Rfam assigns this 334-nucleotide part of an RNA from Oenococcus oeni to the family "Bacterial large subunit ribosomal RNA".
Rfam links the family to the GO terms ribosome and structural constituent of ribosome.
NCBI's taxonomy places the organism under Bacteria, Bacillota, Lactobacillaceae, Oenococcus, Oenococcus oeni.
RNA sequence: CGAGUGAACUAUUGUUAAGGAACUCUGCAAAAUGAGUCCGUAACUUCGGAAGAAGGACUGCUGGUUUUAUACCAGCCGCAGCAAAUAGGCCCAAACAACUGUUUAUCAAAAACACAGGUUUCUGCAAAAUCGUAAGAUGAAGUAUAGGGGCUGACGCCUGCCCAGUGCUGGAAGGUUAAAAGGAGGACUUAGCUUCGGCGAAGGUCUUAAUUGAAGCCCCAGUGAACGGCGGCCGUAACUAUAACGGUCCUAAGGUAGCGAAAUUCCUUGUCGGGUAAGUUCCGACCCGCAUGAAAGGCGUAAUGAUUUGGGCGCUGUCUCAACAAUAGACUCG
Numbered sequence: 001c002g003a004g005u006g007a008a009c010u011a012u013u014g015u016u017a018a019g020g021a022a023c024u025c026u027g028c029a030a031a032a033u034g035a036g037u038c039c040g041u042a043a044c045u046u047c048g049g050a051a052g053a054a055g056g057a058c059u060g061c062u063g064g065u066u067u068u069a070u071a072c073c074a075g076c077c078g079c080a081g082c083a084a085a086u087a088g089g090c091c092c093a094a095a096c097a098a099c100u101g102u103u104u105a106u107c108a109a110a111a112a113c114a115c116a117g118g119u120u121u122c123u124g125c126a127a128a129a130u131c132g133u134a135a136g137a138u139g140a141a142g143u144a145u146a147g148g149g150g151c152u153g154a155c156g157c158c159u160g161c162c163c164a165g166u167g168c169u170g171g172a173a174g175g176u177u178a179a180a181a182g183g184a185g186g187a188c189u190u191a192g193c194u195u196c197g198g199c200g201a202a203g204g205u206c207u208u209a210a211u212u213g214a215a216g217c218c219c220c221a222g223u224g225a226a227c228g229g230c231g232g233c234c235g236u237a238a239c240u241a242u243a244a245c246g247g248u249c250c251u252a253a254g255g256u257a258g259c260g261a262a263a264u265u266c267c268u269u270g271u272c273g274g275g276u277a278a279g280u281u282c283c284g285a286c287c288c289g290c291a292u293g294a295a296a297g298g299c300g301u302a303a304u305g306a307u308u309u310g311g312g313c314g315c316u317g318u319c320u321c322a323a324c325a326a327u328a329g330a331c332u333c334g
Base pairs, nucleotide, nucleotide: 001334002333003332004331009329010328011327012326013325014324015323016322018320019319020318035059036058037057038056039055044049060076061075062074063073064072065071077081089313090312091311092310093309094308095307096305097304100114101113102112117152118151119150120149121148122147123146124145125142129138130137131136155300156299157298158297160230161229162228165227166226167223168222169221170220171219174218175217176216180212181211184208185207186206187205188204189203192199193198231249232248233247234246235245236244250254260287270286271285272284273283274282275281